[Rfam]
RNA: mir-2060 microRNA precursor family
Organism: Branchiostoma floridae
RNA sequence: GUUAACCUGUGGGUGGAUGGUGUUCAGCACCAAGGACAGGUUAACCUGUGGGUGGAUGGUGUUCAGCACCAAGGACAGGUUGUCCU
Numbered sequence: 001g002u003u004a005a006c007c008u009g010u011g012g013g014u015g016g017a018u019g020g021u022g023u024u025c026a027g028c029a030c031c032a033a034g035g036a037c038a039g040g041u042u043a044a045c046c047u048g049u050g051g052g053u054g055g056a057u058g059g060u061g062u063u064c065a066g067c068a069c070c071a072a073g074g075a076c077a078g079g080u081u082g083u084c085c086u
Stems, first nucleotide, its partner, number of pairs: 004081007018071007026063007036049005